[Rfam]
A member of the RNA family "Eukaryotic large subunit ribosomal RNA" from Babesia microti, 371 nucleotides of a longer RNA.
The family's consensus secondary structure is taken from published work.
It scores 3172 bits against the family's covariance model.
Lineage of the source: Eukaryota > Alveolata > Piroplasmida > Babesiidae > Babesia microti.

RNA sequence: GACGCUGCGACAGUAAUCCAACUUAGUACGAGAGGAACAGUUGGUUCAGAUAAUUGGUUAAUGCGGCUAGUUGAAAAGCUAGUGCCGCGACGCUAUCAUCUGUUGGAUUAUGACUGAACGCCUCUAAGUCAGAAUCCAUGCUGAACCAGCGUUAUUCACCGUUUCUGGCAUUACUUGCAAUGCGAUAUCGCCGGUUUUUACCGUAUUUCAUUCCAACACCGUCGUUUUCAGCAUGACGGUGCGAAUAUCAAUUCCAAUUGUUAGAAACGAUACAUCAAUUGCAGACGACUUUAUCGCACCCGGGUAUUGUAAGCAUGAGAGCAGGCUUGACUUGCGAUCUGCUGAGAUUUAGCCCGCGGUGUCUGAUGUGU
Numbered sequence: 001g002a003c004g005c006u007g008c009g010a011c012a013g014u015a016a017u018c019c020a021a022c023u024u025a026g027u028a029c030g031a032g033a034g035g036a037a038c039a040g041u042u043g044g045u046u047c048a049g050a051u052a053a054u055u056g057g058u059u060a061a062u063g064c065g066g067c068u069a070g071u072u073g074a075a076a077a078g079c080u081a082g083u084g085c086c087g088c089g090a091c092g093c094u095a096u097c098a099u100c101u102g103u104u105g106g107a108u109u110a111u112g113a114c115u116g117a118a119c120g121c122c123u124c125u126a127a128g129u130c131a132g133a134a135u136c137c138a139u140g141c142u143g144a145a146c147c148a149g150c151g152u153u154a155u156u157c158a159c160c161g162u163u164u165c166u167g168g169c170a171u172u173a174c175u176u177g178c179a180a181u182g183c184g185a186u187a188u189c190g191c192c193g194g195u196u197u198u199u200a201c202c203g204u205a206u207u208u209c210a211u212u213c214c215a216a217c218a219c220c221g222u223c224g225u226u227u228u229c230a231g232c233a234u235g236a237c238g239g240u241g242c243g244a245a246u247a248u249c250a251a252u253u254c255c256a257a258u259u260g261u262u263a264g265a266a267a268c269g270a271u272a273c274a275u276c277a278a279u280u281g282c283a284g285a286c287g288a289c290u291u292u293a294u295c296g297c298a299c300c301c302g303g304g305u306a307u308u309g310u311a312a313g314c315a316u317g318a319g320a321g322c323a324g325g326c327u328u329g330a331c332u333u334g335c336g337a338u339c340u341g342c343u344g345a346g347a348u349u350u351a352g353c354c355c356g357c358g359g360u361g362u363c364u365g366a367u368g369u370g371u
Stems, first nucleotide, its partner, number of pairs: 001153007011143004016046001018044006047102005055095003062089005067082006104138003111131005161268007272369005278292001281289001297361004302355003306348002313342003318338001321335005